The record is a 191-nucleotide sequence from Paenibacillus psychroresistens, which matches "glmS glucosamine-6-phosphate activated ribozyme aptamer" in Rfam. NCBI's taxonomy places the organism under Bacteria, Bacillota, Bacilli, Caryophanales, Paenibacillus. It scores 91 bits against the family's covariance model. Pairs were carried over by alignment from the consensus structure, which is taken from published work. Rfam classes the family as a riboswitch. On this family, see Winkler et al., Nature 2004: "Control of gene expression by a natural metabolite-responsive ribozyme".
[Rfam]
RNA sequence: CUAGUAUCAUAAGCGCCAGGGCUUGAGCGAGGAACAGUUGGUUUCGCUGGUAAGGAAAUCGCUGACGUCAAGCUGACGAGGUGAAGGUGUUCGAAACAUUCGGCGGGGACCUUCCGGCUAAUUCAUAGCCGUUAAGUUGGAGAGUAAAUGGAUGAAGUAAUUCAUCUUACAAGAAUCCAACAAGAAAACAC
Number, nucleotide and partner (000 for none) at each position: 001c000002u000003a000004g000005u000006a000007u000008c000009a000010u000011a000012a000013g000014c000015g000016c000017c000018a000019g000020g074021g073022c072023u071024u070025g069026a068027g000028c000029g000030a000031g000032g000033a000034a000035c000036a000037g000038u000039u000040g000041g000042u000043u000044u000045c000046g000047c000048u000049g000050g000051u000052a000053a000054g000055g000056a000057a000058a000059u000060c000061g000062c000063u000064g000065a000066c000067g000068u026069c025070a024071a023072g022073c021074u020075g000076a000077c000078g000079a000080g000081g000082u000083g114084a113085a112086g111087g110088u000089g000090u000091u103092c102093g101094a100095a000096a000097c000098a000099u000100u094101c093102g092103g091104c000105g000106g000107g000108g000109a000110c087111c086112u085113u084114c083115c131116g130117g129118c128119u127120a126121a000122u000123u000124c000125a000126u120127a119128g118129c117130c116131g115132u000133u000134a000135a000136g181137u180138u179139g178140g177141a176142g000143a000144g000145u000146a000147a000148a000149u000150g167151g166152a165153u164154g163155a162156a161157g000158u000159a000160a000161u156162u155163c154164a153165u152166c151167u150168u000169a000170c000171a000172a000173g000174a000175a000176u141177c140178c139179a138180a137181c136182a000183a000184g000185a000186a000187a000188a000189c000190a000191c000